[Rfam]
RNA sequence: UAGCGAUGCUCUGGAAAGUGCUUCGUCCUUCGGACGGGCCGCCGACGGUGUAACCCCGCGGGAUUUGCGCAGGGGAAAGCUCUCAGGCUUCCGAGACAGAGGGGGCACC
Numbered sequence: 001u002a003g004c005g006a007u008g009c010u011c012u013g014g015a016a017a018g019u020g021c022u023u024c025g026u027c028c029u030u031c032g033g034a035c036g037g038g039c040c041g042c043c044g045a046c047g048g049u050g051u052a053a054c055c056c057c058g059c060g061g062g063a064u065u066u067g068c069g070c071a072g073g074g075g076a077a078a079g080c081u082c083u084c085a086g087g088c089u090u091c092c093g094a095g096a097c098a099g100a101g102g103g104g105g106c107a108c109c
Stems, first nucleotide, its partner, number of pairs: 007103001009101005020039004041088003044084002048082001050080001054075004
RNA: Glycine riboswitch aptamer
Organism: Novosphingobium sp. PC22D